[Rfam]
RNA sequence: GAGAGGCGUGAAGCAUUCUGUGCCCCAAAAGGGUUCGGAACUUCAUGGGGAAGCACGUCUCUAGUCACAACUACCAUGCUAUUGGUUAGCAAACUGUCAUUGAACACAGUUGUAGAGGUUCGACUCCUCGCAAAGCAAAAGCCUUUCCCUGCCGAUGAGCAAAAGCGCCUUAAUCCCCGACUGGGAGCAGAAUCGGGGCAGGACGAGCCCGCAAGGCGGAUCCUGUUUGUAGACAAGUAGUGCAGCCAUGGGACGGCCAUCCUAACGGCGAAUCAAAAGUCGCAGAGUAGCUGUCGGUAUGACGAGUGGUUCACGUUACGGACCAGGCGUUGCACGUACACAGGGGACUGUGUGGACAAGUCGGGAAUCCAUAAUCCGACGAAAGCGUGUGGUCGAGCGGUUUAGUCUCUAGCCC
Numbered sequence: 001g002a003g004a005g006g007c008g009u010g011a012a013g014c015a016u017u018c019u020g021u022g023c024c025c026c027a028a029a030a031g032g033g034u035u036c037g038g039a040a041c042u043u044c045a046u047g048g049g050g051a052a053g054c055a056c057g058u059c060u061c062u063a064g065u066c067a068c069a070a071c072u073a074c075c076a077u078g079c080u081a082u083u084g085g086u087u088a089g090c091a092a093a094c095u096g097u098c099a100u101u102g103a104a105c106a107c108a109g110u111u112g113u114a115g116a117g118g119u120u121c122g123a124c125u126c127c128u129c130g131c132a133a134a135g136c137a138a139a140a141g142c143c144u145u146u147c148c149c150u151g152c153c154g155a156u157g158a159g160c161a162a163a164a165g166c167g168c169c170u171u172a173a174u175c176c177c178c179g180a181c182u183g184g185g186a187g188c189a190g191a192a193u194c195g196g197g198g199c200a201g202g203a204c205g206a207g208c209c210c211g212c213a214a215g216g217c218g219g220a221u222c223c224u225g226u227u228u229g230u231a232g233a234c235a236a237g238u239a240g241u242g243c244a245g246c247c248a249u250g251g252g253a254c255g256g257c258c259a260u261c262c263u264a265a266c267g268g269c270g271a272a273u274c275a276a277a278a279g280u281c282g283c284a285g286a287g288u289a290g291c292u293g294u295c296g297g298u299a300u301g302a303c304g305a306g307u308g309g310u311u312c313a314c315g316u317u318a319c320g321g322a323c324c325a326g327g328c329g330u331u332g333c334a335c336g337u338a339c340a341c342a343g344g345g346g347a348c349u350g351u352g353u354g355g356a357c358a359a360g361u362c363g364g365g366a367a368u369c370c371a372u373a374a375u376c377c378g379a380c381g382a383a384a385g386c387g388u389g390u391g392g393u394c395g396a397g398c399g400g401u402u403u404a405g406u407c408u409c410u411a412g413c414c415c
Stems, first nucleotide, its partner, number of pairs: 002062008010044004017039004022034004047149007135212002150299007158292003166329005175198006181190003199225005207217003228284003232280001243267001250263004308324005331391006337354007355407003360380006399414003
Rfam assigns this 415-nucleotide sequence from Bongovirus reindeer to the family "Giant, ornate, lake- and Lactobacillales-derived (GOLLD) RNA". For this family Rfam cites "Exceptional structured noncoding RNAs revealed by bacterial metagenome analysis" (Weinberg et al., Nature, 2009). The family's consensus secondary structure is taken from published work. It is annotated as a non-coding RNA gene.